This 72-nucleotide RNA from Stieleria varia belongs to the Rfam family "tRNA".
Rfam classes the family as a transfer RNA.
NCBI's taxonomy places the organism under Bacteria, Planctomycetota, Planctomycetia, Pirellulales, Stieleria.
RNA sequence: GGGCUGGUAGCUGAGACGGUCUAGCGGCGGUCUGAAGAACCGCAGACGAGGAUUCGAGCGCCUCCCAGCCCA
Numbered sequence: 001g002g003g004c005u006g007g008u009a010g011c012u013g014a015g016a017c018g019g020u021c022u023a024g025c026g027g028c029g030g031u032c033u034g035a036a037g038a039a040c041c042g043c044a045g046a047c048g049a050g051g052a053u054u055c056g057a058g059c060g061c062c063u064c065c066c067a068g069c070c071c072a
Stems, first nucleotide, its partner, number of pairs: 001071007010025004027043005048064004